[Rfam]
RNA sequence: CUCCGAUAAGAGUAAUGCCGGAUCAAUCCGGCAGCACAAAGCCGCGGGCCUCCACGUGAGGACAGCCGGGCUGCCGAA
Numbered sequence: 001c002u003c004c005g006a007u008a009a010g011a012g013u014a015a016u017g018c019c020g021g022a023u024c025a026a027u028c029c030g031g032c033a034g035c036a037c038a039a040a041g042c043c044g045c046g047g048g049c050c051u052c053c054a055c056g057u058g059a060g061g062a063c064a065g066c067c068g069g070g071c072u073g074c075c076g077a078a
Stems, first nucleotide, its partner, number of pairs: 012037002017032006040072004045068003048063001050061001
Dot-bracket structure: ...........((...((((((....))))))...))..((((.((((.(..........).)..)))))))......

Shown here is a 78-nucleotide RNA sequence from Desulfuromonas soudanensis, a member of the family "c-di-GMP-I riboswitch aptamer". NCBI's taxonomy places the organism under Bacteria, Thermodesulfobacteriota, Desulfuromonadales, Desulfuromonadaceae, Desulfuromonas. The match comes from Rfam's covariance-model search (46 bits).